[Rfam]
RNA sequence: CCAGUUGGCCGGGCAGCCGCGCUUUACCAAUGUCGAAAGACGGUAGGGUGAGGAAAGUCCGGGCUCCACGGAAACACGGUGCCGGAUAACGUCCGGCGGGGGCGACCCCAGGGAAAGUGCCACAGAGAGCAAACCGCCACGCAUGCGUGGUAAGGGUGAAAGGGUGGGGUAAGAGCCCACCGCGCGACUGGUAACAGAAGCGGCAAGGUAAACCCCACCGGGAGCAAGACCGAAUAGGGAUGACGCGGGGCGCGCAAGCGCCUACAGCCGGUUUUCGGGCCAGUCAUCCGGGUGGGUUGCGAGAGGCGGUGUGCAAACAUCGUCCCAGAUGAAUGGCUGCCACGUUCCGGGUCAAACCGGGGCCAUACAAAACCCGGCUUAUAGGCCAACUGGCGAU
Dot-bracket structure: ((((((((((((((((((.(((((((((.............)))))))))....[[[.[[[[[((((....[[[..((((((((((.....)))))(((((....)))).)((...(((((............((((((((....))))))..)).......((((((.......))))))((((..(((....)))..))).)..)))..)))))))))))))...((((......((((((.........................(...]]]...)....)))))).....))))......((((((((....))))))))..........)))))))...............................]]]]]]]].).))))))))))....

This 397-nucleotide sequence from Agrobacterium sp. AGB01 belongs to the Rfam family "Bacterial RNase P class A".
NCBI's taxonomy places the organism under Bacteria, Pseudomonadota, Alphaproteobacteria, Hyphomicrobiales, Agrobacterium.
By type it is a ribozyme.